RNA sequence: GGUCCGAUGCCACGUCGCCUGUAGCCAAGUGCAGUGACCGGCGAUGCUAUGAUUGGACCGAUACGAAUUCCAUGUUUCGCCUUUUGAUAGGAACCUGUGGAUCUGAUUUAUUGUGAUCUACGGAGCCGUUUUCGGCGAUUACAAUU
Numbered sequence: 001g002g003u004c005c006g007a008u009g010c011c012a013c014g015u016c017g018c019c020u021g022u023a024g025c026c027a028a029g030u031g032c033a034g035u036g037a038c039c040g041g042c043g044a045u046g047c048u049a050u051g052a053u054u055g056g057a058c059c060g061a062u063a064c065g066a067a068u069u070c071c072a073u074g075u076u077u078c079g080c081c082u083u084u085u086g087a088u089a090g091g092a093a094c095c096u097g098u099g100g101a102u103c104u105g106a107u108u109u110a111u112u113g114u115g116a117u118c119u120a121c122g123g124a125g126c127c128g129u130u131u132u133c134g135g136c137g138a139u140u141a142c143a144a145u146u
Stems, first nucleotide, its partner, number of pairs: 002058007009050001013046006021038002024032002077138005090127002095123003099119005